[Rfam]
RNA sequence: CGGUGAGGUAGAGGUGCGAGUAAUAUGAGUAGCCAACAGGAGAAUGACAACGUUGAAUGUUAGUGAAAGGAUUGUUUGCCGAAGCGUAAUAAGCGUCAACUUAUUAUUUGCUGGUAUGUCUUUGAAUAAGGGGCAUACUGUCAUGCUGUUUACUGCAUGGAGAACUACUGAUCGA
Number, nucleotide and partner (000 for none) at each position: 001c000002g000003g000004u000005g000006a000007g169008g168009u167010a166011g165012a000013g000014g000015u000016g079017c078018g077019a076020g075021u074022a073023a072024u071025a000026u000027g000028a000029g000030u000031a000032g064033c063034c000035a061036a060037c059038a058039g000040g000041a000042g000043a000044a000045u000046g000047a000048c000049a000050a000051c000052g000053u000054u000055g000056a000057a000058u038059g037060u036061u035062a000063g033064u032065g000066a000067a000068a000069g000070g000071a024072u023073u022074g021075u020076u019077u018078g017079c016080c000081g000082a000083a112084g111085c110086g109087u106088a105089a104090u103091a102092a101093g100094c000095g000096u000097c000098a000099a000100c093101u092102u091103a090104u089105u088106a087107u000108u000109u086110g085111c084112u083113g139114g138115u137116a136117u135118g134119u133120c132121u131122u130123u129124g000125a000126a000127u000128a000129a123130g122131g121132g120133g119134c118135a117136u116137a115138c114139u113140g000141u160142c159143a158144u157145g156146c155147u000148g000149u000150u000151u000152a000153c000154u000155g146156c145157a144158u143159g142160g141161a000162g000163a000164a000165c011166u010167a009168c008169u007170g000171a000172u000173c000174g000175a000
RNA: Lysine riboswitch aptamer
Organism: Oceanobacillus indicireducens